[Rfam]
Nucleotides: 203
Base pairs, nucleotide, nucleotide: 001060002059003058004057005056006055007054008053011051012050015046016045017044018043019042020041021039022038023037068136071133073131074130082126084124087119090116092114094112095111096110097109099107100106138198139197140196141195142194143193144192145191154184155183156182158180159179160178161177162176163175
Number, partner (000 for none) and nucleotide at each position: 001060u002059c003058c004057a005056g006055u007054a008053g009000u010000a011051g012050u013000c014000a015046a016045c017044u018043g019042u020041c021039c022038a023037g024000a025000g026000c027000a028000g029000u030000a031000c032000u033000g034000c035000g036000c037023c038022u039021g040000u041020g042019a043018u044017a045016g046015u047000g048000u049000u050012a051011c052000c053008c054007u055006g056005c057004u058003g059002g060001g061000a062000g063000a064000u065000a066000a067000a068136g069000c070000u071133c072000a073131g074130u075000c076000a077000u078000u079000u080000c081000u082126u083000c084124u085000g086000g087119c088000u089000g090116c091000u092114g093000u094112u095111g096110u097109c098000a099107c100106c101000g102000u103000u104000c105000u106100g107099g108000a109097g110096g111095c112094a113000g114092c115000u116090g117000a118000u119087g120000c121000c122000a123000a124084a125000a126082a127000g128000g129000a130074a131073u132000g133071g134000u135000c136068u137000u138198g139197u140196g141195c142194u143193u144192c145191c146000c147000u148000g149000a150000g151000a152000g153000c154184g155183c156182g157000c158180u159179g160178a161177a162176g163175a164000u165000c166000u167000g168000c169000u170000g171000u172000g173000c174000c175163u176162c177161u178160u179159u180158a181000g182156u183155g184154c185000u186000a187000g188000u189000c190000u191145g192144g193143a194142a195141g196140c197139a198138u199000a200000c201000a202000u203000u

Notes
The family of this 203-nucleotide sequence from Athene cunicularia is "Small nucleolar RNA SNORA74". Rfam 15.1 lists 1,348 matches to the family in 628 species. Taxonomically the source falls in Athene (Eukaryota, Opisthokonta, Vertebrata, Aves). U19 belongs to the H/ACA class of snoRNAs. snoRNAs bind a number of proteins (including dyskerin, Gar1p and Nop10p in the case of the H/ACA class) to form snoRNP complexes. This class are thought to guide the sites of modification of uridines to pseudouridines by forming direct base pairing interactions with substrate RNAs. Targets may include ribosomal and spliceosomal RNAs but the exact functions of many snoRNAs, including U19, are not confirmed. Co-precipitation of U19 snoRNA with RNase MRP RNA suggests that U19 may be involved in pre-rRNA processing. On this family, see Bortolin and Kiss, RNA 1998: "Human U19 intron-encoded snoRNA is processed from a long primary transcript that possesses little potential for protein coding".